RNA sequence: GUGCCUCAAUCUAUUGAGUAAGGAAAUUAUUGGGCCUUGGUAACGCUUGGCUAUGCCUUCAUUGGCGUCCAUAUUUUUUAAGGGUACAGGUCGUCCUCUUGAGUCAUGCGCCUACUUUGUGCGUGGUUCGGGUGAAGCGAUCUGCCUU
Numbered sequence: 001g002u003g004c005c006u007c008a009a010u011c012u013a014u015u016g017a018g019u020a021a022g023g024a025a026a027u028u029a030u031u032g033g034g035c036c037u038u039g040g041u042a043a044c045g046c047u048u049g050g051c052u053a054u055g056c057c058u059u060c061a062u063u064g065g066c067g068u069c070c071a072u073a074u075u076u077u078u079u080a081a082g083g084g085u086a087c088a089g090g091u092c093g094u095c096c097u098c099u100u101g102a103g104u105c106a107u108g109c110g111c112c113u114a115c116u117u118u119g120u121g122c123g124u125g126g127u128u129c130g131g132g133u134g135a136a137g138c139g140a141u142c143u144g145c146c147u148u
Stems, first nucleotide, its partner, number of pairs: 004023003008019001033052004039046001054067004081148005088143007097132002101129005107123005